This 135-nucleotide RNA from Physcomitrium patens belongs to the Rfam family "U4 spliceosomal RNA".
The match comes from Rfam's covariance-model search (101 bits).
NCBI's taxonomy places the organism under Eukaryota, Viridiplantae, Bryopsida, Funariidae, Physcomitrium.
U4 small nuclear RNA (U4 snRNA) is a component of the major U2-dependent spliceosome.
The family's consensus secondary structure is taken from published work.
RNA sequence: AUCUUUGCGCUUGGGGCAAUGACGCAGUUAGUGAGGCAAACCCGAGACGCGUCAAUUGCUGGUUGAAAACUAUUUCCAACCCCCCUGCGGUGCCCGCGAGGGCGCCCCAGAAUUUCUGGAAGGUCUGGCGUAGGC
Numbered sequence: 001a002u003c004u005u006u007g008c009g010c011u012u013g014g015g016g017c018a019a020u021g022a023c024g025c026a027g028u029u030a031g032u033g034a035g036g037c038a039a040a041c042c043c044g045a046g047a048c049g050c051g052u053c054a055a056u057u058g059c060u061g062g063u064u065g066a067a068a069a070c071u072a073u074u075u076c077c078a079a080c081c082c083c084c085c086u087g088c089g090g091u092g093c094c095c096g097c098g099a100g101g102g103c104g105c106c107c108c109a110g111a112a113u114u115u116c117u118g119g120a121a122g123g124u125c126u127g128g129c130g131u132a133g134g135c
Stems, first nucleotide, its partner, number of pairs: 021053005027048003035043002085110003089106007123135004